[Rfam]
RNA: c-di-AMP riboswitch aptamer (ydaO/yuaA leader)
Organism: Streptomyces sp. WAC00469
RNA sequence: CGCGUGCGCACGCCGAAUCCCGCAAGGGAACCGGGGAACCAUCCAUCAGGGGUGAAUCGGGCCCGACUGCCCUGCUCUGCACGGCAGUUGACGCGCGUAGGAGACCUUCCUGCUCCGAACCCGUCAGCUAACCCGGUAGGCGAGACGGAAGGAAAGG
Number, nucleotide and partner (000 for none) at each position: 001c000002g000003c000004g000005u000006g000007c000008g000009c000010a000011c142012g141013c140014c139015g000016a000017a000018u029019c028020c027021c000022g000023c000024a000025a000026g000027g020028g019029a018030a137031c136032c135033g134034g133035g132036g000037a000038a000039c000040c049041a000042u000043c000044c000045a000046u000047c000048a000049g040050g122051g121052g120053u000054g000055a000056a000057u000058c097059g096060g000061g094062c000063c000064c000065g000066a000067c000068u000069g000070c000071c000072c000073u000074g000075c000076u000077c000078u000079g000080c000081a000082c000083g000084g000085c000086a000087g000088u000089u000090g000091a000092c000093g000094c061095g000096c059097g058098u000099a000100g116101g115102a114103g113104a000105c000106c000107u000108u000109c000110c000111u000112g000113c103114u102115c101116c100117g000118a000119a000120c052121c051122c050123g000124u000125c000126a000127g000128c000129u000130a000131a000132c035133c034134c033135g032136g031137u030138a000139g014140g013141c012142g011143a000144g000145a000146c000147g000148g000149a000150a000151g000152g000153a000154a000155a000156g000157g000